[Rfam]
RNA sequence: CGUGUCGAACACGGGAGUCCGGUGAGCCGGGCUGAGAGGAAGGUUCUCCAACCUUCGACCGUCGAACCUGAUCUGGAUCAUGCCAGCGCAGGGAGGCCGAUUUCAUCUCAU
Numbered sequence: 001c002g003u004g005u006c007g008a009a010c011a012c013g014g015g016a017g018u019c020c021g022g023u024g025a026g027c028c029g030g031g032c033u034g035a036g037a038g039g040a041a042g043g044u045u046c047u048c049c050a051a052c053c054u055u056c057g058a059c060c061g062u063c064g065a066a067c068c069u070g071a072u073c074u075g076g077a078u079c080a081u082g083c084c085a086g087c088g089c090a091g092g093g094a095g096g097c098c099g100a101u102u103u104c105a106u107c108u109c110a111u
Base pairs, nucleotide, nucleotide: 006099007098010095011062012061013060014059017032018031019030020029021028039056040055041054042053043052044051045050067092068091069090070089073086074085075084076083